[Rfam]
RNA sequence: CACCCAGCGUGAUCGGCGCCGAUGGCGCUAUGGACCGGAAUUGGAACAGGGGCUGGUCCAGAUGCACGAGGGGGAAGCGAGGGGCCGGCCAGUCGGGGGACUGUCCGGCCCUGUUUU
Numbered sequence: 001c002a003c004c005c006a007g008c009g010u011g012a013u014c015g016g017c018g019c020c021g022a023u024g025g026c027g028c029u030a031u032g033g034a035c036c037g038g039a040a041u042u043g044g045a046a047c048a049g050g051g052g053c054u055g056g057u058c059c060a061g062a063u064g065c066a067c068g069a070g071g072g073g074g075a076a077g078c079g080a081g082g083g084g085c086c087g088g089c090c091a092g093u094c095g096g097g098g099g100a101c102u103g104u105c106c107g108g109c110c111c112u113g114u115u116u117u
Base pairs, nucleotide, nucleotide: 003073004072005071008068009067010066011065012063013062015029016028017027018026032059034057035056036055037054038053041050042049081112082111083110084109085108086107087106088105090103091102092101093100094099
RNA: Xanthomonadaceae sRNA asX1
Organism: Stenotrophomonas tumulicola